Rfam assigns this 145-nucleotide sequence from Pontibacillus yanchengensis to the family "PyrR binding site". The source organism's lineage runs through Bacteria, Bacillota, Caryophanales, Bacillaceae and Pontibacillus yanchengensis. The family has 41 seed sequences and 1,498 matches in Rfam 15.1. It is annotated as a cis-regulatory element. Rfam's curators write: This family represents the PyrR binding site and terminator structure.

[Rfam]
Nucleotides: 145
Stems, first nucleotide, its partner, number of pairs: 003038006015030005051093002054090002057087001059085006107140014
Number, partner (000 for none) and nucleotide at each position: 001000g002000g003038u004037a005036c006035c007034u008033u009000u010000a011000a012000a013000u014000g015030c016029a017028g018027u019026c020000c021000c022000g023000u024000g025000a026019g027018g028017c029016u030015g031000a032000c033008a034007a035006g036005g037004u038003a039000a040000g041000u042000c043000g044000g045000a046000a047000u048000u049000u050000a051093u052092a053000u054090g055089a056000u057087a058000u059085u060084a061083g062082a063081c064080g065000u066000a067000a068000a069000u070000g071000c072000g073000u074000a075000g076000c077000g078000c079000u080064c081063g082062u083061c084060u085059a086000u087057u088000u089055u090054c091000u092052u093051a094000u095000a096000u097000g098000c099000a100000c101000a102000c103000g104000u105000a106000u107140a108139g109138g110137c111136u112135u113134c114133u115132u116131g117130u118129c119128a120127g121000g122000a123000a124000c125000g126000a127120c128119u129118g130117a131116c132115a133114a134113g135112a136111a137110g138109c139108c140107u141000u142000u143000u144000u145000u